[Rfam]
RNA sequence: AGACUUGAAUUAUGGCCAUAGCACAAGCGUUCAUAUCGUGACCCUGUCAGAUUCUAUCGAAUCUACAAAUUCUGCU
Number, nucleotide and partner (000 for none) at each position: 001a000002g000003a000004c000005u000006u000007g000008a000009a000010u000011u000012a000013u000014g043015g042016c000017c040018a000019u000020a076021g075022c074023a073024c000025a071026a070027g039028c038029g037030u000031u000032c000033a000034u000035a000036u000037c029038g028039u027040g017041a000042c015043c014044c000045u000046g000047u000048c000049a064050g063051a062052u061053u060054c059055u000056a000057u000058c000059g054060a053061a052062u051063c050064u049065a000066c000067a000068a000069a000070u026071u025072c000073u023074g022075c021076u020